[Rfam]
RNA sequence: CUAAAAGGAACGACGACUAAGAGCACCACGUCCUGUGGCGACGUUGGCACUAGUACAACUAUGUACG
Numbered sequence: 001c002u003a004a005a006a007g008g009a010a011c012g013a014c015g016a017c018u019a020a021g022a023g024c025a026c027c028a029c030g031u032c033c034u035g036u037g038g039c040g041a042c043g044u045u046g047g048c049a050c051u052a053g054u055a056c057a058a059c060u061a062u063g064u065a066c067g
Stems, first nucleotide, its partner, number of pairs: 012048001014046004026038004053066004
A member of the RNA family "Bacillaceae-1 RNA" from Peribacillus cavernae, 67 nucleotides long. A search with the family's covariance model found it, with a score of 43 bits. It is annotated as a small RNA. The family has 95 seed sequences and 5,721 matches in Rfam 15.1.